The family of this 47-nucleotide RNA sequence from Allostreptomyces psammosilenae is "L31-Actinobacteria ribosomal protein leader". The family's consensus secondary structure is taken from published work. The match comes from Rfam's covariance-model search (44 bits). For this family Rfam cites "Discovery of 20 novel ribosomal leader candidates in bacteria and archaea" (Eckert and Weinberg, BMC Microbiol, 2020).
[Rfam]
RNA sequence: UCGGCCCCGGUUCACGUGCGACAUCCCGUCGGCACGACCCGGGAGCC
Numbered sequence: 001u002c003g004g005c006c007c008c009g010g011u012u013c014a015c016g017u018g019c020g021a022c023a024u025c026c027c028g029u030c031g032g033c034a035c036g037a038c039c040c041g042g043g044a045g046c047c
Base pairs, nucleotide, nucleotide: 003047004046005045007042008041009040010039015036016035017034018033019031020030021029022028